[Rfam]
RNA sequence: GGUUUUCACCCAGCACCACAAGGUACUACGGGUGUCUGACCUUCCAUAGAGAUGCGUCACAAACCUAAAUUUUUGGAUCGCCUUCUCGGGGUAUCCGGGAGGGCAAC
Numbered sequence: 001g002g003u004u005u006u007c008a009c010c011c012a013g014c015a016c017c018a019c020a021a022g023g024u025a026c027u028a029c030g031g032g033u034g035u036c037u038g039a040c041c042u043u044c045c046a047u048a049g050a051g052a053u054g055c056g057u058c059a060c061a062a063a064c065c066u067a068a069a070u071u072u073u074u075g076g077a078u079c080g081c082c083u084u085c086u087c088g089g090g091g092u093a094u095c096c097g098g099g100a101g102g103g104c105a106a107c
Stems, first nucleotide, its partner, number of pairs: 007034002009031002013027001015024003037059004041054001043052002084103003090096002
The family of this 107-nucleotide RNA sequence from Oesophagostomum dentatum is "SL2 RNA". On this family, see Dassanayake et al., Gene 2001: "Trans-spliced leader RNA, 5S-rRNA genes and novel variant orphan spliced-leader of the lymphatic filarial nematode Wuchereria bancrofti, and a sensitive polymerase chain reaction based detection assay". The base pairs follow the family's consensus structure, which is taken from published work. It scores 48 bits against the family's covariance model. This family represents SL2 RNA. SL2 RNA is involved in trans splicing in lower eukaryotes. By type it is a non-coding RNA gene.